The record is a 129-nucleotide RNA from Mus spicilegus, which matches "Small nucleolar RNA SNORA17" in Rfam.
RNA sequence: ACCCCCUAGAGACAUUGCAGGCUUGGCUACAGUGUCCCAGGUGAAUCCGUAGGUGGAAGAGAGGAGACAGGUUGAAAUAUGCUCAGUGUUCUAACAUAUGAACCUCUGAAUGAUUAUUAGCCUAACAUU
Numbered sequence: 001a002c003c004c005c006c007u008a009g010a011g012a013c014a015u016u017g018c019a020g021g022c023u024u025g026g027c028u029a030c031a032g033u034g035u036c037c038c039a040g041g042u043g044a045a046u047c048c049g050u051a052g053g054u055g056g057a058a059g060a061g062a063g064g065a066g067a068c069a070g071g072u073u074g075a076a077a078u079a080u081g082c083u084c085a086g087u088g089u090u091c092u093a094a095c096a097u098a099u100g101a102a103c104c105u106c107u108g109a110a111u112g113a114u115u116a117u118u119a120g121c122c123u124a125a126c127a128u129u
Stems, first nucleotide, its partner, number of pairs: 003056002005053004011047002018043002025036003066126001069123007080112002083109004088103004
The match comes from Rfam's covariance-model search (82 bits).
Rfam 15.1 lists 5,784 matches to the family in 673 species.
The family is grouped with related families in Rfam's "SNORA17 clan".
snoRNA ACA 17 belongs to the H/ACA family of snoRNAs and is predicted to guide pseudouridylation of the 28S rRNA at positions U4659 and U4598. It shares the same host gene together with ACA43. NB This family has a high threshold value to exclude a large number of closely related sequences that do not appear to have conserved H and ACA boxes, and may be pseudogenes.